[Rfam]
RNA sequence: GGAAGUAUCGCCUAAUGGUAGGGCAGCAGCUUGGAAAGCUGUGGGCGGCAACGUCUUGUGGGUUCGAUUCCCUCUACUUCCG
Numbered sequence: 001g002g003a004a005g006u007a008u009c010g011c012c013u014a015a016u017g018g019u020a021g022g023g024c025a026g027c028a029g030c031u032u033g034g035a036a037a038g039c040u041g042u043g044g045g046c047g048g049c050a051a052c053g054u055c056u057u058g059u060g061g062g063u064u065c066g067a068u069u070c071c072c073u074c075u076a077c078u079u080c081c082g
Base pairs, nucleotide, nucleotide: 001081002080003079004078005077006076007075010024011023012022013021026042027041028040029039030038058074060072061071062070